Nucleotides: 036
Stems, first nucleotide, its partner, number of pairs: 002022004011035003
Number, partner (000 for none) and nucleotide at each position: 001000a002022c003021a004020g005019g006000g007000g008000a009000u010000c011035g012034c013033c014000g015000a016000a017000a018000a019005c020004c021003u022002g023000u024000a025000a026000c027000a028000g029000a030000g031000u032000a033013g034012g035011c036000g
The record is a 36-nucleotide sequence from Mucilaginibacter myungsuensis, which matches "DUF805b RNA" in Rfam.